About this RNA
This 103-nucleotide sequence from Gasterosteus aculeatus belongs to the Rfam family "Z30 small nucleolar RNA".
RNA sequence: CUGCAGUGAUGAGCCUUAAGUGACUGAUCUGGUAUUGCUUUUUCCUUUCUUGGGGAGAGCUCUGACCAGGGAAUGAUCUCGACUUAAUCUUCUCUCUGAGCAG
Numbered sequence: 001c002u003g004c005a006g007u008g009a010u011g012a013g014c015c016u017u018a019a020g021u022g023a024c025u026g027a028u029c030u031g032g033u034a035u036u037g038c039u040u041u042u043u044c045c046u047u048u049c050u051u052g053g054g055g056a057g058a059g060c061u062c063u064g065a066c067c068a069g070g071g072a073a074u075g076a077u078c079u080c081g082a083c084u085u086a087a088u089c090u091u092c093u094c095u096c097u098g099a100g101c102a103g
Stems, first nucleotide, its partner, number of pairs: 003101002037060006

The source organism's lineage runs through Eukaryota, Chordata, Euacanthomorphacea, Percomorphaceae and Gasterosteus. It is one of the family's seed sequences. Gene Ontology terms of the family: RNA processing and nucleolus.